[Rfam]
RNA: Purine riboswitch aptamer
RNA sequence: UUCCACAUGGUUGAUCUGACUCGUAUAUAUUCAGGAAUAGGGCCUGAACGUUUCUACCCGGCCACCGUAAAUGGCUGGACUACGAGCGCUUGGUCACCGGUG
Numbered sequence: 001u002u003c004c005a006c007a008u009g010g011u012u013g014a015u016c017u018g019a020c021u022c023g024u025a026u027a028u029a030u031u032c033a034g035g036a037a038u039a040g041g042g043c044c045u046g047a048a049c050g051u052u053u054c055u056a057c058c059c060g061g062c063c064a065c066c067g068u069a070a071a072u073g074g075c076u077g078g079a080c081u082a083c084g085a086g087c088g089c090u091u092g093g094u095c096a097c098c099g100g101u102g
Stems, first nucleotide, its partner, number of pairs: 020086006030048006058078007
Dot-bracket structure: ...................((((((....((((((.......)))))).........(((((((.......)))))))..))))))................